[Rfam]
RNA sequence: ACUGGAAGCUGCUGGGACCAAUUUGGACCAGUCAUGGGCAAAAGAAACAUGUUUUGUCCACCGUUGCAGUCUUCCUAGAGCAAAAGUGGAGGUCUCUGUCCACUUUAGGAAAGCGAACUAAACCGGAUCGUUCCCCUCCAUACACG
Numbered sequence: 001a002c003u004g005g006a007a008g009c010u011g012c013u014g015g016g017a018c019c020a021a022u023u024u025g026g027a028c029c030a031g032u033c034a035u036g037g038g039c040a041a042a043a044g045a046a047a048c049a050u051g052u053u054u055u056g057u058c059c060a061c062c063g064u065u066g067c068a069g070u071c072u073u074c075c076u077a078g079a080g081c082a083a084a085a086g087u088g089g090a091g092g093u094c095u096c097u098g099u100c101c102a103c104u105u106u107a108g109g110a111a112a113g114c115g116a117a118c119u120a121a122a123c124c125g126g127a128u129c130g131u132u133c134c135c136c137u138c139c140a141u142a143c144a145c146g
Stems, first nucleotide, its partner, number of pairs: 004075003008070005031061001035060005044053002088139005096130001098128003104122005
Rfam assigns this 146-nucleotide sequence from Eolophus roseicapilla to the family "Small Cajal body specific RNA 3".
A reference for the family is Darzacq et al. (2002), "Cajal body-specific small nuclear RNAs: a novel class of 2'-O-methylation and pseudouridylation guide RNAs", EMBO J.
From the family's description: scaRNAs are a specific class of small nuclear RNAs which localise to the Cajal bodies and guide the modification of RNA polymerase II transcribed spliceosomal RNAs U1, U2, U4, U5 and U12.
It is annotated as a small Cajal body RNA.